[Rfam]
RNA: Small nucleolar RNA SNORD27
RNA sequence: ACUCUAUGAUGAACAUAAAAUGACAAGCAUAUGACUGAGUUAUAAGUGAUGUCAUCUUAAUCCUGAGGAGU
Number, nucleotide and partner (000 for none) at each position: 001a071002c070003u069004c068005u000006a000007u000008g000009a000010u000011g000012a000013a000014c000015a000016u000017a000018a000019a000020a000021u000022g000023a000024c000025a000026a000027g000028c000029a000030u000031a000032u000033g000034a000035c000036u000037g000038a000039g000040u000041u000042a000043u000044a000045a000046g000047u000048g000049a000050u000051g000052u000053c000054a000055u000056c000057u000058u000059a000060a000061u000062c000063c000064u000065g000066a000067g000068g004069a003070g002071u001